[Rfam]
RNA: Group II catalytic intron D1-D4-5
Organism: Bacillus pseudomycoides
RNA sequence: GAGAACUGUUAUUCCGAUGAAUCAAAUGAAAGGGUAACGCCUUGAAGGGUUCACUCGAUACCGAACUGCGUUAAGAUUUGUAAGAAUCGAAGCGUGGUAAGCUCGGCGUAAAAGUGGAAGAACCUGCCGUAAUAGAUAAUGUUGACGAAAGACUUUCAGAGGUGAAAGUUGCAGGUCAUACUGCGAGAGUCGAAUGG
Numbered sequence: 001g002a003g004a005a006c007u008g009u010u011a012u013u014c015c016g017a018u019g020a021a022u023c024a025a026a027u028g029a030a031a032g033g034g035u036a037a038c039g040c041c042u043u044g045a046a047g048g049g050u051u052c053a054c055u056c057g058a059u060a061c062c063g064a065a066c067u068g069c070g071u072u073a074a075g076a077u078u079u080g081u082a083a084g085a086a087u088c089g090a091a092g093c094g095u096g097g098u099a100a101g102c103u104c105g106g107c108g109u110a111a112a113a114g115u116g117g118a119a120g121a122a123c124c125u126g127c128c129g130u131a132a133u134a135g136a137u138a139a140u141g142u143u144g145a146c147g148a149a150a151g152a153c154u155u156u157c158a159g160a161g162g163u164g165a166a167a168g169u170u171g172c173a174g175g176u177c178a179u180a181c182u183g184c185g186a187g188a189g190u191c192g193a194a195u196g197g
Base pairs, nucleotide, nucleotide: 018053019052020051021050022049023048031043032042033041034040054189055188056187061106062105063104064103065098066097067096068095069094070093071092072091075088076087077086078085114184115183116182117181122176123175124174125173126172127171128147129146130145135143136142151170152169153168154167155166156165157164158163